Source information: A member of the RNA family "COG3860 RNA" from Paludibacterium purpuratum, 58 nucleotides long. It scores 54 bits against the family's covariance model. Pairs were carried over by alignment from the consensus structure, which is taken from published work. Rfam classes the family as a cis-regulatory element.

RNA sequence: GGGUCCGCAGUCCACCCAGACGUCGCCUGUCCCUUUCGGGACAACGCUGAACCUGCCG
Numbered sequence: 001g002g003g004u005c006c007g008c009a010g011u012c013c014a015c016c017c018a019g020a021c022g023u024c025g026c027c028u029g030u031c032c033c034u035u036u037c038g039g040g041a042c043a044a045c046g047c048u049g050a051a052c053c054u055g056c057c058g
Stems, first nucleotide, its partner, number of pairs: 001017004029042004